[Rfam]
RNA: Trypanosomatid mitochondrial small subunit ribosomal RNA
RNA sequence: GUGGACUAAAGUCUAUUGUUAUUAUUCAUAUUAAUUUUUUUAAAAGUUUUAUAUUUUUAUAUUAGUUUAUUUGUUAAAUUAGGAGUUUAACCAAAUUUUAGGAAUAGAUAAUAAUAAUUUAUAAUUUUGAUUAGAUAUUUUUGUUAAUGCUAUAUAAUGGGUGUGGAAAUUUUUUUUAAAUUUGUAAAAUAACAUGAUAAUAAAUCACAUAUCACACAUUAGUCAGAAAUGGAUGCCAGCCGUUGCGGUAAUUUCUAUGCUUUUAAAUAUUAUACAUUUAUCAAAACAUAAUGUUACUUUCCAUUUUAACAUAAAAAAACAUGAUUUUUCUUUUUUGUUUUUAAACACCAAUAUGGUAUAUGCAAAUAUAAAAUUAUAGUAAUUAUAUAUUAUAUUAUAUUAUAUUUAUUCAUAUAAAUAAAAAAAAAAUUAAGAUACUUUGAUACCAUGAUAAGGCUAGUAGUUUGGAAUUGUAAAUAUUAUAAUCAAAUAUUAUUAUUUAUAUAAAAUCCUUAAAAUUAGAUAAAAUAAUAAAUUACAAAGGUAUUGUUGCCCACCAAUUUUUAUAAUAAAAAUAACGUGCAGUAAUUAAUAUAUUUAUAAAAAUAUAUUCUACAUAUUU
Numbered sequence: 001g002u003g004g005a006c007u008a009a010a011g012u013c014u015a016u017u018g019u020u021a022u023u024a025u026u027c028a029u030a031u032u033a034a035u036u037u038u039u040u041u042a043a044a045a046g047u048u049u050u051a052u053a054u055u056u057u058u059a060u061a062u063u064a065g066u067u068u069a070u071u072u073g074u075u076a077a078a079u080u081a082g083g084a085g086u087u088u089a090a091c092c093a094a095a096u097u098u099u100a101g102g103a104a105u106a107g108a109u110a111a112u113a114a115u116a117a118u119u120u121a122u123a124a125u126u127u128u129g130a131u132u133a134g135a136u137a138u139u140u141u142u143g144u145u146a147a148u149g150c151u152a153u154a155u156a157a158u159g160g161g162u163g164u165g166g167a168a169a170u171u172u173u174u175u176u177u178a179a180a181u182u183u184g185u186a187a188a189a190u191a192a193c194a195u196g197a198u199a200a201u202a203a204a205u206c207a208c209a210u211a212u213c214a215c216a217c218a219u220u221a222g223u224c225a226g227a228a229a230u231g232g233a234u235g236c237c238a239g240c241c242g243u244u245g246c247g248g249u250a251a252u253u254u255c256u257a258u259g260c261u262u263u264u265a266a267a268u269a270u271u272a273u274a275c276a277u278u279u280a281u282c283a284a285a286a287c288a289u290a291a292u293g294u295u296a297c298u299u300u301c302c303a304u305u306u307u308a309a310c311a312u313a314a315a316a317a318a319a320c321a322u323g324a325u326u327u328u329u330c331u332u333u334u335u336u337g338u339u340u341u342u343a344a345a346c347a348c349c350a351a352u353a354u355g356g357u358a359u360a361u362g363c364a365a366a367u368a369u370a371a372a373a374u375u376a377u378a379g380u381a382a383u384u385a386u387a388u389a390u391u392a393u394a395u396u397a398u399a400u401u402a403u404a405u406u407u408a409u410u411c412a413u414a415u416a417a418a419u420a421a422a423a424a425a426a427a428a429a430u431u432a433a434g435a436u437a438c439u440u441u442g443a444u445a446c447c448a449u450g451a452u453a454a455g456g457c458u459a460g461u462a463g464u465u466u467g468g469a470a471u472u473g474u475a476a477a478u479a480u481u482a483u484a485a486u487c488a489a490a491u492a493u494u495a496u497u498a499u500u501u502a503u504a505u506a507a508a509a510u511c512c513u514u515a516a517a518a519u520u521a522g523a524u525a526a527a528a529u530a531a532u533a534a535a536u537u538a539c540a541a542a543g544g545u546a547u548u549g550u551u552g553c554c555c556a557c558c559a560a561u562u563u564u565u566a567u568a569a570u571a572a573a574a575a576u577a578a579c580g581u582g583c584a585g586u587a588a589u590u591a592a593u594a595u596a597u598u599u600a601u602a603a604a605a606a607u608a609u610a611u612u613c614u615a616c617a618u619a620u621u622u
Stems, first nucleotide, its partner, number of pairs: 015586004036081001039078005044072004052064002055061001102411006109402005114393005120387007130377002133374001136370003140366005147359006160349005167342003172337001184297004189292001200281006218264001221261003225256006234250004239246002313335001314332002317329003429536003433532001439526002444521002449515002456487001458485001460483005492513001495510003499506001543554004555582003560576007591612009
Dot-bracket structure: ..............((((.................(..(((((((((....((.(.....).))....)))).)))))..)....................((((((.((((((((((.(((((((...((.(..(((.(((((..((((((.......(((((..(((..(...........((((.(..........((((((............(..(((.((((((...((((.((....))))))))))))..)))..)...........))))))..........).))))...............(((.(((.......))).))..).)..)))..)))))....))))))..))))).)))...).))...))))))).)))))....)))))...)))))).................(((.(.....((...((...((.....(.(.(((((..............))))).).)....(..(((.(......).)))..)))....))...)).....).)))......((((....))))(((..(((((((...)))))))...)))))))....(((((((((....)))))))))..........